[Rfam]
RNA sequence: UAGCCCAUCGGGGCCAUGGAUACCUGCUUUUUG
Numbered sequence: 001u002a003g004c005c006c007a008u009c010g011g012g013g014c015c016a017u018g019g020a021u022a023c024c025u026g027c028u029u030u031u032u033g
Stems, first nucleotide, its partner, number of pairs: 003014004017026003
The family of this 33-nucleotide RNA is "XIST RNA A repeat". The literature on the family includes a 2011 paper in RNA by Duszczyk et al., "The Xist RNA A-repeat comprises a novel AUCG tetraloop fold and a platform for multimerization". It is one of the family's seed sequences.